[Rfam]
RNA sequence: CGCCAUUCCCCGGGGGGCUGCUGAUCGGCGGCUGAGAGGGGGGCACGAGCCCCCGACCCGCAUCAACCUGAUCCCGUUAAUACGGGCGUAGGGAGGGAGCGGUGACCGCCC
Dot-bracket structure: .....(((((((((.((((((......)))))......((((.......)))))..))))......((((..((((......))))..))))..)))))............